[Rfam]
RNA sequence: AGUAGUAGCAGCAAAGUAAGGUGGGAAUCCUUACCGCCGAAGGGGCUAGGGAUCCUUGGCAAUGUUUGUCAGCCAAGGGUUAGUCGAUCCUAAGACCAAUGGUAAUUCCAAUUGGCCGAAAGGGAAACAGGUUAAUAUUCCUGUACAGUAGAGGUACUUGCGGUGACGCUAAGUUUAGUUUCUGACGCUUUGUGGUAGGCUGAGUGGGAUUGUCGUCCUAUUUAAUUGUUGAAGUCUGGGGAGAGCUGUAAUAGCGAGAACCAUUGAUGAAGGCUUGAAUAGCCAUCUGUAUGGAUGGUUCAGUUGAUCCAUGGAGUCCUUGAAAAGGGAACUAAAUUGUAUCCUUUAUUUCCGUACCGAGAUCCGACACAGGUGCCCCUAGCUUAGUAGGCUAAGGCGUGU
Numbered sequence: 001a002g003u004a005g006u007a008g009c010a011g012c013a014a015a016g017u018a019a020g021g022u023g024g025g026a027a028u029c030c031u032u033a034c035c036g037c038c039g040a041a042g043g044g045g046c047u048a049g050g051g052a053u054c055c056u057u058g059g060c061a062a063u064g065u066u067u068g069u070c071a072g073c074c075a076a077g078g079g080u081u082a083g084u085c086g087a088u089c090c091u092a093a094g095a096c097c098a099a100u101g102g103u104a105a106u107u108c109c110a111a112u113u114g115g116c117c118g119a120a121a122g123g124g125a126a127a128c129a130g131g132u133u134a135a136u137a138u139u140c141c142u143g144u145a146c147a148g149u150a151g152a153g154g155u156a157c158u159u160g161c162g163g164u165g166a167c168g169c170u171a172a173g174u175u176u177a178g179u180u181u182c183u184g185a186c187g188c189u190u191u192g193u194g195g196u197a198g199g200c201u202g203a204g205u206g207g208g209a210u211u212g213u214c215g216u217c218c219u220a221u222u223u224a225a226u227u228g229u230u231g232a233a234g235u236c237u238g239g240g241g242a243g244a245g246c247u248g249u250a251a252u253a254g255c256g257a258g259a260a261c262c263a264u265u266g267a268u269g270a271a272g273g274c275u276u277g278a279a280u281a282g283c284c285a286u287c288u289g290u291a292u293g294g295a296u297g298g299u300u301c302a303g304u305u306g307a308u309c310c311a312u313g314g315a316g317u318c319c320u321u322g323a324a325a326a327g328g329g330a331a332c333u334a335a336a337u338u339g340u341a342u343c344c345u346u347u348a349u350u351u352c353c354g355u356a357c358c359g360a361g362a363u364c365c366g367a368c369a370c371a372g373g374u375g376c377c378c379c380u381a382g383c384u385u386a387g388u389a390g391g392c393u394a395a396g397g398c399g400u401g402u
Base pairs, nucleotide, nucleotide: 016034017033018032019031020030021029035399036398037397038396043378044377045376046375049358050357054078055077056076057075058074059073063071064070085354086353089123090122094117096115097114098113099112100110101109102108127144128143129142130141131140147350148349149348150347151346152345153344154343181329182328183327187317188316189315190314191313192312193311194310195309198305199304200303201302202301203222204221205220206219207218208217228274229273235267236266237263238262239261245255246254247253288293364373365372380394381393382392383391
Rfam assigns this 402-nucleotide part of an RNA from Methanobacterium paludis to the family "Archaeal large subunit ribosomal RNA". The family has 91 seed sequences and 2,955 matches in Rfam 15.1.